[Rfam]
RNA sequence: AAACCAAAUGAUGAUUUUGGACUCAAAUUUAUCACGAUGGUCUUCUGAGACUUAAUUUUCAGUGUUGAUUCAAUAUCCAAUGCUCCUGAUGGUU
Numbered sequence: 001a002a003a004c005c006a007a008a009u010g011a012u013g014a015u016u017u018u019g020g021a022c023u024c025a026a027a028u029u030u031a032u033c034a035c036g037a038u039g040g041u042c043u044u045c046u047g048a049g050a051c052u053u054a055a056u057u058u059u060c061a062g063u064g065u066u067g068a069u070u071c072a073a074u075a076u077c078c079a080a081u082g083c084u085c086c087u088g089a090u091g092g093u094u
Stems, first nucleotide, its partner, number of pairs: 001094002004091001049057002
Rfam assigns this 94-nucleotide RNA sequence from Salix dunnii to the family "Small nucleolar RNA Z161/Z228". A reference for the family is Chen et al. (2003), "The high diversity of snoRNAs in plants: identification and comparative study of 120 snoRNA genes from Oryza sativa", Nucleic Acids Res. The organism belongs to Salix, within Eukaryota. Clan: SNORD35 clan. A search with the family's covariance model found it, with a score of 51 bits.